[Rfam]
RNA sequence: UAAUUCCUUCAGGGACAGGUGAGAAGGUUAGCCUUCAAUUCCUAACCGGCGGUAAAGCCCGCGAGCCAUUGGCUGAUCCGAUGCUAUUUCGGAGCCGACAGUAAAGUCUGGAUGGGAGAAGGAAGGC
Numbered sequence: 001u002a003a004u005u006c007c008u009u010c011a012g013g014g015a016c017a018g019g020u021g022a023g024a025a026g027g028u029u030a031g032c033c034u035u036c037a038a039u040u041c042c043u044a045a046c047c048g049g050c051g052g053u054a055a056a057g058c059c060c061g062c063g064a065g066c067c068a069u070u071g072g073c074u075g076a077u078c079c080g081a082u083g084c085u086a087u088u089u090c091g092g093a094g095c096c097g098a099c100a101g102u103a104a105a106g107u108c109u110g111g112a113u114g115g116g117a118g119a120a121g122g123a124a125g126g127c
Base pairs, nucleotide, nucleotide: 004124005123006122007121008120009119010118017043018042019041045107046106047097048096049062050061051060052059057095058094065073066072067071077093078092079091080090081089099110100109101108
The record is a 127-nucleotide sequence from Dethiobacter sp., which matches "FMN riboswitch aptamer (RFN element)" in Rfam. The family has 146 seed sequences and 6,230 matches in Rfam 15.1.